[Rfam]
RNA sequence: AUCCCAAUGAGGAAGAAUACCCAGAAAGAUAGGAAGUGCCGUAUGACACUCCAAAACGGCAAGCGGGGCUCACUCGCCGUCGCUCACCCGUUUCCCAUCCACCGAUCGCGUCUGUGUCCUUCGUCGGAGCCUCUCGAGAUCGGUCGGGACCGUGGUGGUCGACGGCGGUCAGGUGGGUCCCCUAGCCGUGGGUGAUUUGAAACGGGUCUCUGAGGGUU
Numbered sequence: 001a002u003c004c005c006a007a008u009g010a011g012g013a014a015g016a017a018u019a020c021c022c023a024g025a026a027a028g029a030u031a032g033g034a035a036g037u038g039c040c041g042u043a044u045g046a047c048a049c050u051c052c053a054a055a056a057c058g059g060c061a062a063g064c065g066g067g068g069c070u071c072a073c074u075c076g077c078c079g080u081c082g083c084u085c086a087c088c089c090g091u092u093u094c095c096c097a098u099c100c101a102c103c104g105a106u107c108g109c110g111u112c113u114g115u116g117u118c119c120u121u122c123g124u125c126g127g128a129g130c131c132u133c134u135c136g137a138g139a140u141c142g143g144u145c146g147g148g149a150c151c152g153u154g155g156u157g158g159u160c161g162a163c164g165g166c167g168g169u170c171a172g173g174u175g176g177g178u179c180c181c182c183u184a185g186c187c188g189u190g191g192g193u194g195a196u197u198u199g200a201a202a203c204g205g206g207u208c209u210c211u212g213a214g215g216g217u218u
Stems, first nucleotide, its partner, number of pairs: 001218001003216003074168009084158005089152001093149004
The record is a 218-nucleotide sequence from Rhodamnia argentea, which matches "Small nucleolar RNA Z112" in Rfam. The family has 6 seed sequences and 427 matches in Rfam 15.1. The organism belongs to Rhodamnia, within Eukaryota. Rfam links the family to the GO terms RNA processing and nucleolus. Rfam classes the family as a C/D-box small nucleolar RNA. On this family, see Liang et al., Nucleic Acids Res 2002: "A novel gene organization: intronic snoRNA gene clusters from Oryza sativa".